About this RNA
This 116-nucleotide RNA from Janthinobacterium sp. KBS0711 belongs to the Rfam family "TPP riboswitch aptamer (THI element)".

[Rfam]
RNA sequence: GGCAAACGCUAGGGGUCCUGCCUUUCGCUGUGAAAACACAGUGCAAGCGCGGGUGAGAAAUACCCUCCGAACCUGAUCUGGAUAAUGCCAGCGAAGGGAAGCUUUAGGAUGAACGC
Number, nucleotide and partner (000 for none) at each position: 001g000002g000003c000004a000005a000006a104007c000008g102009c101010u100011a066012g065013g064014g063015g000016u060017c053018c052019u051020g050021c049022c000023u000024u000025u000026c000027g000028c000029u000030g000031u000032g000033a000034a000035a000036a000037c000038a000039c000040a000041g000042u000043g000044c000045a000046a000047g000048c000049g021050c020051g019052g018053g017054u000055g000056a000057g000058a000059a000060a016061u000062a000063c014064c013065c012066u011067c000068c000069g000070a000071a000072c097073c096074u095075g000076a000077u000078c091079u090080g089081g088082a000083u000084a000085a000086u000087g000088c081089c080090a079091g078092c000093g000094a000095a074096g073097g072098g000099a000100a010101g009102c008103u000104u006105u000106a000107g000108g000109a000110u000111g000112a000113a000114c000115g000116c000
The match comes from Rfam's covariance-model search (63 bits).